A member of the RNA family "Vault RNA" from Equus caballus, 98 nucleotides long. Rfam's curators write: This family of RNAs are found as part of the enigmatic vault ribonucleoprotein complex. On this family, see Stadler et al., Mol Biol Evol 2009: "Evolution of Vault RNAs". Rfam 15.1 lists 2,873 matches to the family in 431 species. By type it is a non-coding RNA gene.
[Rfam]
RNA sequence: GGGUCGGCUGUAGCUCAAGCGGUUACUUCGCAACUUCAGAAUGCUUCUGGACAACCCCUUCCAGGGUUCGAGACCCGCGGGCGCCCUCUGACCCUUUU
Numbered sequence: 001g002g003g004u005c006g007g008c009u010g011u012a013g014c015u016c017a018a019g020c021g022g023u024u025a026c027u028u029c030g031c032a033a034c035u036u037c038a039g040a041a042u043g044c045u046u047c048u049g050g051a052c053a054a055c056c057c058c059u060u061c062c063a064g065g066g067u068u069c070g071a072g073a074c075c076c077g078c079g080g081g082c083g084c085c086c087u088c089u090g091a092c093c094c095u096u097u098u
Stems, first nucleotide, its partner, number of pairs: 002093006013082004019078004027072004